This 92-nucleotide RNA sequence from Neotabrizicola shimadae belongs to the Rfam family "Rhodo-rpoB RNA". Taxonomically the source falls in Neotabrizicola (Bacteria, Pseudomonadati, Alphaproteobacteria, Rhodobacterales). The base pairs follow the family's consensus structure, which is taken from published work.
RNA sequence: GGUUCGGGAGCGGCCCCUCGGGUGGGGCAAGCACGAAUGGAACCUGCCCCCCUUCGCCAGGCGGCGCUGCCCGGGACCCGACGGGUAUGCGC
Numbered sequence: 001g002g003u004u005c006g007g008g009a010g011c012g013g014c015c016c017c018u019c020g021g022g023u024g025g026g027g028c029a030a031g032c033a034c035g036a037a038u039g040g041a042a043c044c045u046g047c048c049c050c051c052c053u054u055c056g057c058c059a060g061g062c063g064g065c066g067c068u069g070c071c072c073g074g075g076a077c078c079c080g081a082c083g084g085g086u087a088u089g090c091g092c
Base pairs, nucleotide, nucleotide: 001044002043003042004041005040010032011031013028014027015026016025017024064092065091066090067089069086070085071084072083073082